[Rfam]
RNA sequence: AUGUGGUAGAUAUAUGCACGAUAUAGGUAUGUAUGUAUGUAUGUAUAAAAGCAGGGCAGUAUAUAUAUCGUGCAUAUAUCUACCACAU
Numbered sequence: 001a002u003g004u005g006g007u008a009g010a011u012a013u014a015u016g017c018a019c020g021a022u023a024u025a026g027g028u029a030u031g032u033a034u035g036u037a038u039g040u041a042u043g044u045a046u047a048a049a050a051g052c053a054g055g056g057c058a059g060u061a062u063a064u065a066u067a068u069c070g071u072g073c074a075u076a077u078a079u080c081u082a083c084c085a086c087a088u
Base pairs, nucleotide, nucleotide: 001088002087003086004085005084006083007082008081009080010079011078012077013076014075015074016073017072018071019070020069021068022067023066024065025064027062028061029060030059038058039057040056042053043052044051